[Rfam]
A member of the RNA family "Sense overlapping transcript RNA 2652 (sot)" from Haloquadratum walsbyi, 197 nucleotides long. It is associated with IS1341-type transposase (tnpB) genes, at the 3'-end in H. salinarum NRC-1. The tetraloop structural motif may be functional. By type it is a small RNA. It scores 77 bits against the family's covariance model. A reference for the family is Gomes-Filho et al. (2015), "Sense overlapping transcripts in IS1341-type transposase genes are functional non-coding RNAs in archaea", RNA Biol.

RNA sequence: AUUACCGGACUCGCAAAACCCAACCGUUUGUUCGGAAGGUGAGCCUGUCUGGGUCGGGGGGUUCUAUAAACCGCCCAGCCUCAUCCCGUGAAAUCGCUUCGCGUGGAGUGCUUACGACGUAGGCUGAGGGACUUAGAAAAGCCAGGGGUCACCCGACCCGUGGUCGUUUAUGCUGAUACUCUGAGAGAUGUGAUCCG
Numbered sequence: 001a002u003u004a005c006c007g008g009a010c011u012c013g014c015a016a017a018a019c020c021c022a023a024c025c026g027u028u029u030g031u032u033c034g035g036a037a038g039g040u041g042a043g044c045c046u047g048u049c050u051g052g053g054u055c056g057g058g059g060g061g062u063u064c065u066a067u068a069a070a071c072c073g074c075c076c077a078g079c080c081u082c083a084u085c086c087c088g089u090g091a092a093a094u095c096g097c098u099u100c101g102c103g104u105g106g107a108g109u110g111c112u113u114a115c116g117a118c119g120u121a122g123g124c125u126g127a128g129g130g131a132c133u134u135a136g137a138a139a140a141g142c143c144a145g146g147g148g149u150c151a152c153c154c155g156a157c158c159c160g161u162g163g164u165c166g167u168u169u170a171u172g173c174u175g176a177u178a179c180u181c182u183g184a185g186a187g188a189u190g191u192g193a194u195c196c197g
Base pairs, nucleotide, nucleotide: 005052006051007050008049009048010047013044014043020039021038024035025034053079054078057076058075059074061072062070087197088196094193095192096191097190099188100187102185103181105179110173111172113170114169115126116125118123141164142163143162144161146159147158148157149156